[Rfam]
RNA sequence: CGUUCCGAGGAGCGUUGCAGCGCCAUCAGGCGUGAGGCUCGGACCACAUCGCAACCACGCUCAACCGCU
Numbered sequence: 001c002g003u004u005c006c007g008a009g010g011a012g013c014g015u016u017g018c019a020g021c022g023c024c025a026u027c028a029g030g031c032g033u034g035a036g037g038c039u040c041g042g043a044c045c046a047c048a049u050c051g052c053a054a055c056c057a058c059g060c061u062c063a064a065c066c067g068c069u
Stems, first nucleotide, its partner, number of pairs: 002045001004043005021032004
RNA: SAH (S-adenosyl-L-homocysteine) riboswitch aptamer